[Rfam]
RNA sequence: CCCGCCGAAGCCUCCCGCAGGAGGAUCUCCGCGGAGGGUGGGGGCGUGGUAGGGCAACGAUUGGGUGGGUAAGGGGCUCCGCCCCGCCACCCUCUCGAACCCCGAAUGCGCCUCCCCCGUAGAAGCGGGGAGCCGGGCGGCGGGGGGAAGCUCCGUCGCCGAGAGGGGAACAACCCGGACCGGGGUUAAGGUCCCCAAGUCCUGGCUAAGUGCCGAAAUCCGAAGGGCGUCUCCCUCCUAAGACAGCGGGGAGGUAGGCUCAGAAGCAGCCAUCCUUUAAAGAGUGCGUAAAAGCUCACCCGCCGAGGAGGGAGGCCCCCAAAAUGAGUCGGGGCUGAAGCCAGGCACCGAUACCCCGGCAGCGUCCUGGAAGGGCGCUGGGUAGGCGGGCGCGCACACCGGGCGGAAGCCGGGGCGUGAGCUCCGGUGGACCGGUGUGUGUUGCAAAU
Numbered sequence: 001c002c003c004g005c006c007g008a009a010g011c012c013u014c015c016c017g018c019a020g021g022a023g024g025a026u027c028u029c030c031g032c033g034g035a036g037g038g039u040g041g042g043g044g045c046g047u048g049g050u051a052g053g054g055c056a057a058c059g060a061u062u063g064g065g066u067g068g069g070u071a072a073g074g075g076g077c078u079c080c081g082c083c084c085c086g087c088c089a090c091c092c093u094c095u096c097g098a099a100c101c102c103c104g105a106a107u108g109c110g111c112c113u114c115c116c117c118c119g120u121a122g123a124a125g126c127g128g129g130g131a132g133c134c135g136g137g138c139g140g141c142g143g144g145g146g147g148a149a150g151c152u153c154c155g156u157c158g159c160c161g162a163g164a165g166g167g168g169a170a171c172a173a174c175c176c177g178g179a180c181c182g183g184g185g186u187u188a189a190g191g192u193c194c195c196c197a198a199g200u201c202c203u204g205g206c207u208a209a210g211u212g213c214c215g216a217a218a219u220c221c222g223a224a225g226g227g228c229g230u231c232u233c234c235c236u237c238c239u240a241a242g243a244c245a246g247c248g249g250g251g252a253g254g255u256a257g258g259c260u261c262a263g264a265a266g267c268a269g270c271c272a273u274c275c276u277u278u279a280a281a282g283a284g285u286g287c288g289u290a291a292a293a294g295c296u297c298a299c300c301c302g303c304c305g306a307g308g309a310g311g312g313a314g315g316c317c318c319c320c321a322a323a324a325u326g327a328g329u330c331g332g333g334g335c336u337g338a339a340g341c342c343a344g345g346c347a348c349c350g351a352u353a354c355c356c357c358g359g360c361a362g363c364g365u366c367c368u369g370g371a372a373g374g375g376c377g378c379u380g381g382g383u384a385g386g387c388g389g390g391c392g393c394g395c396a397c398a399c400c401g402g403g404c405g406g407a408a409g410c411c412g413g414g415g416c417g418u419g420a421g422c423u424c425c426g427g428u429g430g431a432c433c434g435g436u437g438u439g440u441g442u443u444g445c446a447a448a449u
Stems, first nucleotide, its partner, number of pairs: 001390006011024005026132001027130006036118003040115008052103001053101002059096002063092006073085005136160009165176003180359007190349003199346001201345006225319003229316010246303005252276003257271003277281001282297001286295002360380006391444001393441010409428008